Source information:
A member of the RNA family "Archaeal large subunit ribosomal RNA" from Candidatus Caldarchaeum subterraneum, 89 nucleotides of a longer RNA.
RNA sequence: GGGCGGCGCGCAAGGUACUCCGUCCGAACACGCCGCGUAGGCGUGGAGGGCGGAUUAUCCGGCGUCGUCCGCUCCGUCUUGAAACACGG
Numbered sequence: 001g002g003g004c005g006g007c008g009c010g011c012a013a014g015g016u017a018c019u020c021c022g023u024c025c026g027a028a029c030a031c032g033c034c035g036c037g038u039a040g041g042c043g044u045g046g047a048g049g050g051c052g053g054a055u056u057a058u059c060c061g062g063c064g065u066c067g068u069c070c071g072c073u074c075c076g077u078c079u080u081g082a083a084a085c086a087c088g089g
Base pairs, nucleotide, nucleotide: 001070002069003068004067005066006065007064008063009062014060015059019054020053021052022051023050024049025048029045030044031043032042033041034040074089075088076087077086

Pairs were carried over by alignment from the consensus structure, which is taken from published work. Lineage of the source: Archaea > Thermoproteati > Nitrososphaerota > Candidatus Caldarchaeales > Candidatus Caldarchaeum. Gene Ontology terms of the family: ribosome and structural constituent of ribosome.